[Rfam]
RNA sequence: AUUAUGUUUCGGGGGAGCCAAUGCUUUGGCUGAGAGGAAAUAAUUGAGUUUCGACCCUUAGAACCUGAACGGAUAAUGCCGGCGUAGGGAGAGUAAUAUCUAAAAAC
Numbered sequence: 001a002u003u004a005u006g007u008u009u010c011g012g013g014g015g016a017g018c019c020a021a022u023g024c025u026u027u028g029g030c031u032g033a034g035a036g037g038a039a040a041u042a043a044u045u046g047a048g049u050u051u052c053g054a055c056c057c058u059u060a061g062a063a064c065c066u067g068a069a070c071g072g073a074u075a076a077u078g079c080c081g082g083c084g085u086a087g088g089g090a091g092a093g094u095a096a097u098a099u100c101u102a103a104a105a106a107c
Base pairs, nucleotide, nucleotide: 008093009092010091011058012057013056014055017030018029019028020027021026037052038051039050040049041048064088065087066086067085070081071080072079

This 107-nucleotide RNA from Clostridium homopropionicum belongs to the Rfam family "TPP riboswitch aptamer (THI element)". The family's consensus secondary structure is taken from published work. The organism belongs to Clostridium homopropionicum, within Bacteria. The match comes from Rfam's covariance-model search (69 bits).